[Rfam]
RNA sequence: ACUGGCCCUCGGUGGUGGUCACCGCACAGCGCCGCACCGGCGCGUUGCGAUGACUUCGAUCGAAGACCGGU
Numbered sequence: 001a002c003u004g005g006c007c008c009u010c011g012g013u014g015g016u017g018g019u020c021a022c023c024g025c026a027c028a029g030c031g032c033c034g035c036a037c038c039g040g041c042g043c044g045u046u047g048c049g050a051u052g053a054c055u056u057c058g059a060u061c062g063a064a065g066a067c068c069g070g071u
Stems, first nucleotide, its partner, number of pairs: 001071005007065001009063005017055005023049004
Actino-pnp RNA: a 71-nucleotide RNA sequence from Epidermidibacterium keratini.